[Rfam]
RNA: Alpha operon ribosome binding site
Organism: Aliidiomarina minuta
RNA sequence: UGCGUCAAUCGGUUGAGUAUCCUAUCGGGCUUUUUAACCGAUGACCCUUUAACUAUAGGAGAUGUGUUAGUGGCCCGUAUCGCUGGCAUUAACGUCCCUGAC
Numbered sequence: 001u002g003c004g005u006c007a008a009u010c011g012g013u014u015g016a017g018u019a020u021c022c023u024a025u026c027g028g029g030c031u032u033u034u035u036a037a038c039c040g041a042u043g044a045c046c047c048u049u050u051a052a053c054u055a056u057a058g059g060a061g062a063u064g065u066g067u068u069a070g071u072g073g074c075c076c077g078u079a080u081c082g083c084u085g086g087c088a089u090u091a092a093c094g095u096c097c098c099u100g101a102c
Stems, first nucleotide, its partner, number of pairs: 004045004009041005021086002026077004034101003